[Rfam]
RNA: tRNA
Organism: Rhinolophus ferrumequinum
RNA sequence: GGCCAGUUAGUUCAGUUGGUUAGAGCCUGGUGCUAAUAACACUAGGGUUGCUGGUUCGAUCCCUGCAUGGGCCA
Numbered sequence: 001g002g003c004c005a006g007u008u009a010g011u012u013c014a015g016u017u018g019g020u021u022a023g024a025g026c027c028u029g030g031u032g033c034u035a036a037u038a039a040c041a042c043u044a045g046g047g048u049u050g051c052u053g054g055u056u057c058g059a060u061c062c063c064u065g066c067a068u069g070g071g072c073c074a
Base pairs, nucleotide, nucleotide: 001073002072003071004070006068007067010026011025012024013023028044029043030042031041032040050066051065053063054062